[Rfam]
RNA: MIR396 microRNA precursor family
Organism: Handroanthus impetiginosus
RNA sequence: UUCCAUGCUUUUCCACAGCUUUCUUGAACUUCUGCUGCUUAAAUUCUUGAUCCCAUUAAUGUGAUCAAGAACUUAAAGAUUAAUUUAAGUUCAAGAAAGCUGUGGGAAACCAUGGUAA
Dot-bracket structure: ..(((((.....(((.((((((.((((.(((.......................................................))).)))).)))))).))).....)))))...
Numbered sequence: 001u002u003c004c005a006u007g008c009u010u011u012u013c014c015a016c017a018g019c020u021u022u023c024u025u026g027a028a029c030u031u032c033u034g035c036u037g038c039u040u041a042a043a044u045u046c047u048u049g050a051u052c053c054c055a056u057u058a059a060u061g062u063g064a065u066c067a068a069g070a071a072c073u074u075a076a077a078g079a080u081u082a083a084u085u086u087a088a089g090u091u092c093a094a095g096a097a098a099g100c101u102g103u104g105g106g107a108a109a110c111c112a113u114g115g116u117a118a
Stems, first nucleotide, its partner, number of pairs: 003115005013105003017101006024094004029089003